Annotation:
The family of this 110-nucleotide sequence from Salisediminibacterium beveridgei is "SAM riboswitch aptamer (S box leader)". Lineage of the source: Bacteria > Bacillati > Bacillota > Bacillaceae > Salisediminibacterium. The SAM riboswitch is found upstream of a number of genes which code for proteins involved in methionine or cysteine biosynthesis in Gram-positive bacteria. The match comes from Rfam's covariance-model search (92 bits).
[Rfam]
RNA sequence: UUCUUAUCCAGAGCGGCGGAGGGACUGGCCCUAUGAAGCCCGGCAACCACCAUGCAAGUGGAAGGUGCCAAAUCCAUCAGCGUAUGCACGUAUGCGCUGAAAGAUAAGAG
Number, nucleotide and partner (000 for none) at each position: 001u110002u109003c108004u107005u106006a105007u104008c103009c000010a000011g000012a000013g041014c000015g040016g039017c038018g000019g000020a000021g031022g030023g029024a000025c000026u076027g075028g074029c023030c022031c021032u000033a000034u000035g000036a000037a000038g017039c016040c015041c013042g069043g068044c067045a066046a000047c065048c064049a000050c061051c060052a059053u000054g000055c000056a000057a000058g000059u052060g051061g050062a000063a000064g048065g047066u045067g044068c043069c042070a000071a000072a000073u102074c028075c027076a026077u000078c099079a098080g097081c096082g095083u094084a093085u092086g000087c000088a000089c000090g000091u000092a085093u084094g083095c082096g081097c080098u079099g078100a000101a000102a073103g008104a007105u006106a005107a004108g003109a002110g001